RNA sequence: GAAUUAGGUAUUCUCCGGCAAUGACAUUGAGAUUAUAGCGAUUGUUAUUGCUUGUGAAUACAAAUUGC
Numbered sequence: 001g002a003a004u005u006a007g008g009u010a011u012u013c014u015c016c017g018g019c020a021a022u023g024a025c026a027u028u029g030a031g032a033u034u035a036u037a038g039c040g041a042u043u044g045u046u047a048u049u050g051c052u053u054g055u056g057a058a059u060a061c062a063a064a065u066u067g068c
Stems, first nucleotide, its partner, number of pairs: 008061006017052010

The record is a 68-nucleotide sequence from Thelazia callipaeda, which matches "mir-234 microRNA precursor family" in Rfam. Gene Ontology terms of the family: RISC complex and miRNA-mediated post-transcriptional gene silencing. Lineage of the source: Eukaryota > Protostomia > Rhabditida > Spirurina > Thelazia. The family is grouped with related families in Rfam's "mir-137 clan". The base pairs follow the family's consensus structure, which was predicted with RNAalifold.